The record is a 176-nucleotide RNA from Clostridium sp. CAG:413, which matches "Lysine riboswitch aptamer" in Rfam. The organism belongs to Clostridium, within Bacteria. The match comes from Rfam's covariance-model search (110 bits). Pairs were carried over by alignment from the consensus structure, which is taken from published work.
[Rfam]
RNA sequence: AAAAUUGAUAGAGGUUGCGGAAGCGAUCAGUAGCUCUCGUCAUACGCCGGCAAGCGGACGAAAGCGAAAGGCAAUUCCGCCGAAACUGCAAUUCGAUUGCCGUCGGUUUGCUGUUGGGGCCGCAUUUAAGAGAUGCGGUACUGUCACGCAGAUAUGCGUGGAGGGCUAUCAACGGU
Numbered sequence: 001a002a003a004a005u006u007g008a009u010a011g012a013g014g015u016u017g018c019g020g021a022a023g024c025g026a027u028c029a030g031u032a033g034c035u036c037u038c039g040u041c042a043u044a045c046g047c048c049g050g051c052a053a054g055c056g057g058a059c060g061a062a063a064g065c066g067a068a069a070g071g072c073a074a075u076u077c078c079g080c081c082g083a084a085a086c087u088g089c090a091a092u093u094c095g096a097u098u099g100c101c102g103u104c105g106g107u108u109u110g111c112u113g114u115u116g117g118g119g120c121c122g123c124a125u126u127u128a129a130g131a132g133a134u135g136c137g138g139u140a141c142u143g144u145c146a147c148g149c150a151g152a153u154a155u156g157c158g159u160g161g162a163g164g165g166c167u168a169u170c171a172a173c174g175g176u
Stems, first nucleotide, its partner, number of pairs: 006171006017080006025072001033065003037061004084115003088111004093106003116142002119139008144161007

Description:
Its family is annotated with lysine biosynthetic process in the Gene Ontology.